mir-9223 microRNA precursor family: a 75-nucleotide RNA from Myotis lucifugus.
RNA sequence: AACGGUUCUCAGGUGAAGCACCCCAGAAUCGGGCUCCUUCCUCUCUGAUUCUAGGUGCGUCACCCAAGAACCACA
Numbered sequence: 001a002a003c004g005g006u007u008c009u010c011a012g013g014u015g016a017a018g019c020a021c022c023c024c025a026g027a028a029u030c031g032g033g034c035u036c037c038u039u040c041c042u043c044u045c046u047g048a049u050u051c052u053a054g055g056u057g058c059g060u061c062a063c064c065c066a067a068g069a070a071c072c073a074c075a
Base pairs, nucleotide, nucleotide: 005071006070007069008068009067012064013063014062015061016060019057020056021055022054025052026051027050028049029048030047031046032045033044
Dot-bracket structure: ....(((((..(((((..((((..(((((((((..........))))))))).))))..)))))..)))))....

The base pairs follow the family's consensus structure, which was predicted with RNAalifold.